[Rfam]
RNA sequence: CCCCUGCCUUGAUGAAAUGCAUGUUCAGUCCGUGUUUCAGCUGACCACCCUGAUUAUACACAUGCGCUGAGCAGGAG
Numbered sequence: 001c002c003c004c005u006g007c008c009u010u011g012a013u014g015a016a017a018u019g020c021a022u023g024u025u026c027a028g029u030c031c032g033u034g035u036u037u038c039a040g041c042u043g044a045c046c047a048c049c050c051u052g053a054u055u056a057u058a059c060a061c062a063u064g065c066g067c068u069g070a071g072c073a074g075g076a077g
Stems, first nucleotide, its partner, number of pairs: 001077001003075005